This 126-nucleotide RNA from Loxodonta africana belongs to the Rfam family "Small nucleolar RNA SNORA77". Lineage of the source: Eukaryota > Chordata > Vertebrata > Amniota > Loxodonta. The match comes from Rfam's covariance-model search (112 bits). Pairs were carried over by alignment from the consensus structure, which was predicted with RNAalifold. ACA63 (SNORA77) is a member of the H/ACA class of snoRNAs that guide the sites of modification of uridines to pseudouridines. This snoRNA was identified by computational screening and its expression in mouse experimentally verified by Northern blot and primer extension analysis.
[Rfam]
RNA sequence: GCAGACUCACUCUGCAUCCGACUGCAGUCCCAGGCCGGGUGCUUUUUCUGUCUGCCAGAGAAACUCUCCUGGCUGUUGUGAGCGCCUUGGCCUGUCUGAGGCAGCACACUGCCCGGGGACACAUGU
Numbered sequence: 001g002c003a004g005a006c007u008c009a010c011u012c013u014g015c016a017u018c019c020g021a022c023u024g025c026a027g028u029c030c031c032a033g034g035c036c037g038g039g040u041g042c043u044u045u046u047u048c049u050g051u052c053u054g055c056c057a058g059a060g061a062a063a064c065u066c067u068c069c070u071g072g073c074u075g076u077u078g079u080g081a082g083c084g085c086c087u088u089g090g091c092c093u094g095u096c097u098g099a100g101g102c103a104g105c106a107c108a109c110u111g112c113c114c115g116g117g118g119a120c121a122c123a124u125g126u
Base pairs, nucleotide, nucleotide: 001055002054003053004052005051006050014042015041016040017039018038019037020036022033023032024031067117068116069115071113072112073111075109077108078107079106080105084102085101086100087099